[Rfam]
RNA sequence: CUUGGAUCAAUGAUGUAUAUAUAUACUGCGUUAUCUUUCUGCUAUUGCCUAGAGUGGCUUGAAGACACAAGCAACAUACUGAGAUCGACG
Numbered sequence: 001c002u003u004g005g006a007u008c009a010a011u012g013a014u015g016u017a018u019a020u021a022u023a024u025a026c027u028g029c030g031u032u033a034u035c036u037u038u039c040u041g042c043u044a045u046u047g048c049c050u051a052g053a054g055u056g057g058c059u060u061g062a063a064g065a066c067a068c069a070a071g072c073a074a075c076a077u078a079c080u081g082a083g084a085u086c087g088a089c090g
Stems, first nucleotide, its partner, number of pairs: 001090001003088001005086003